This 70-nucleotide RNA sequence from Psophia crepitans belongs to the Rfam family "Small nucleolar RNA SNORD19". The base pairs follow the family's consensus structure. For this family Rfam cites "RNomics: an experimental approach that identifies 201 candidates for novel, small, non-messenger RNAs in mouse" (Huttenhofer et al., EMBO J, 2001). NCBI's taxonomy places the organism under Eukaryota, Opisthokonta, Craniata, Euteleostomi, Psophia. The family is grouped with related families in Rfam's "SNORD19 clan".
[Rfam]
RNA sequence: GAGAAAUGAGGAUACAAACUUUGUCUGACUUCUGUAGUGAAGACUUCAGAUCCAACUCUGAUCUCACGCC
Numbered sequence: 001g002a003g004a005a006a007u008g009a010g011g012a013u014a015c016a017a018a019c020u021u022u023g024u025c026u027g028a029c030u031u032c033u034g035u036a037g038u039g040a041a042g043a044c045u046u047c048a049g050a051u052c053c054a055a056c057u058c059u060g061a062u063c064u065c066a067c068g069c070c
Base pairs, nucleotide, nucleotide: 001065002064003063004062